[Rfam]
RNA sequence: GGCGUGGUAGGCUGGAAACUCAUCAUCCUCUUGCCUUUUACCAGAGGGAGCCGUCCAACCGCCACAACACGUUCCCCGCAGUUUUUGGAGCCACAUCUUUCCCGAUGAGGA
Numbered sequence: 001g002g003c004g005u006g007g008u009a010g011g012c013u014g015g016a017a018a019c020u021c022a023u024c025a026u027c028c029u030c031u032u033g034c035c036u037u038u039u040a041c042c043a044g045a046g047g048g049a050g051c052c053g054u055c056c057a058a059c060c061g062c063c064a065c066a067a068c069a070c071g072u073u074c075c076c077c078g079c080a081g082u083u084u085u086u087g088g089a090g091c092c093a094c095a096u097c098u099u100u101c102c103c104g105a106u107g108a109g110g111a
Stems, first nucleotide, its partner, number of pairs: 001073003005064004010060002013057004024050001026048006091110002094107003